[Rfam]
RNA: Archaeal RNase P
Organism: Halostella sp. JP-L12
RNA sequence: GGUAGAGAGAGUCCGGCCGCCGCGGCGUUCGGGUCGGAAACGACCCGUUCGCACGACGCGGGAUCGCCCCUCGGGGCGACCCGCGCCCGCGAGGAAAGUCCCCCCACCGUCUGGGCAGGUGACCGGACGCAAGUCCGGAGCGGGAGACCGCUGGCUCUGGAACAGAAACGACACGUCUCGGCCCGACCGAUGAGGCGCGCGAACCCGACCGCAAGGGAGGGGAGCUAACCCGCCGAGGGCCGCGCGGUCGCAAUUGCGACCGCGCUCCGGGCGGCACACGCCGUCCCCUGGGCCGAGGAGCGAUGGAACGGCGAAACCUCACCGGUGCAAGUCCGCGCCACAAGGUAGCCCGGACGCGGCGCGGACGCUCAGCCGAAUGCCGGACCGAACAGAAGGGGGCUUACUCCUCUCUGCC
Numbered sequence: 001g002g003u004a005g006a007g008a009g010a011g012u013c014c015g016g017c018c019g020c021c022g023c024g025g026c027g028u029u030c031g032g033g034u035c036g037g038a039a040a041c042g043a044c045c046c047g048u049u050c051g052c053a054c055g056a057c058g059c060g061g062g063a064u065c066g067c068c069c070c071u072c073g074g075g076g077c078g079a080c081c082c083g084c085g086c087c088c089g090c091g092a093g094g095a096a097a098g099u100c101c102c103c104c105c106a107c108c109g110u111c112u113g114g115g116c117a118g119g120u121g122a123c124c125g126g127a128c129g130c131a132a133g134u135c136c137g138g139a140g141c142g143g144g145a146g147a148c149c150g151c152u153g154g155c156u157c158u159g160g161a162a163c164a165g166a167a168a169c170g171a172c173a174c175g176u177c178u179c180g181g182c183c184c185g186a187c188c189g190a191u192g193a194g195g196c197g198c199g200c201g202a203a204c205c206c207g208a209c210c211g212c213a214a215g216g217g218a219g220g221g222g223a224g225c226u227a228a229c230c231c232g233c234c235g236a237g238g239g240c241c242g243c244g245c246g247g248u249c250g251c252a253a254u255u256g257c258g259a260c261c262g263c264g265c266u267c268c269g270g271g272c273g274g275c276a277c278a279c280g281c282c283g284u285c286c287c288c289u290g291g292g293c294c295g296a297g298g299a300g301c302g303a304u305g306g307a308a309c310g311g312c313g314a315a316a317c318c319u320c321a322c323c324g325g326u327g328c329a330a331g332u333c334c335g336c337g338c339c340a341c342a343a344g345g346u347a348g349c350c351c352g353g354a355c356g357c358g359g360c361g362c363g364g365a366c367g368c369u370c371a372g373c374c375g376a377a378u379g380c381c382g383g384a385c386c387g388a389a390c391a392g393a394a395g396g397g398g399g400c401u402u403a404c405u406c407c408u409c410u411c412u413g414c415c
Stems, first nucleotide, its partner, number of pairs: 001415003005411005010405002012384006021091005096402003100399005105327004110354006118323005123138005139152005153318002158314001160312001174302003177297008331366009